Shown here is a 163-nucleotide RNA sequence from Alphaproteobacteria bacterium PA2, a member of the family "caulobacter sRNA CC2171".
The family's RNA type in Rfam is small RNA.
The literature on the family includes a 2008 paper in Mol Microbiol by Landt et al., "Small non-coding RNAs in Caulobacter crescentus".
[Rfam]
RNA sequence: AAACAACUGAAAGGAGGUGACCCAGUGUCUCAUUGUCUUCAUCCGCAAGCGGAAACCGUGACCUGGGCCUCCAUUGGUGAGGCGUGAGCGUCGGCUCUUUUAGGUUGCGCGGCCGCUGAGCGGUCCGACAAUGGAAAGGCCGCUCCGGCGACGGGGCGGCCUU
Numbered sequence: 001a002a003a004c005a006a007c008u009g010a011a012a013g014g015a016g017g018u019g020a021c022c023c024a025g026u027g028u029c030u031c032a033u034u035g036u037c038u039u040c041a042u043c044c045g046c047a048a049g050c051g052g053a054a055a056c057c058g059u060g061a062c063c064u065g066g067g068c069c070u071c072c073a074u075u076g077g078u079g080a081g082g083c084g085u086g087a088g089c090g091u092c093g094g095c096u097c098u099u100u101u102a103g104g105u106u107g108c109g110c111g112g113c114c115g116c117u118g119a120g121c122g123g124u125c126c127g128a129c130a131a132u133g134g135a136a137a138g139g140c141c142g143c144u145c146c147g148g149c150g151a152c153g154g155g156g157c158g159g160c161c162u163u
Base pairs, nucleotide, nucleotide: 016023017022031133032132033131034130035129036128037127044066050060051059067083068082069081070080071079084110085109086108087098088097113123114122115121116120136163137162138161139160140159141158142157143156144155145154146153147152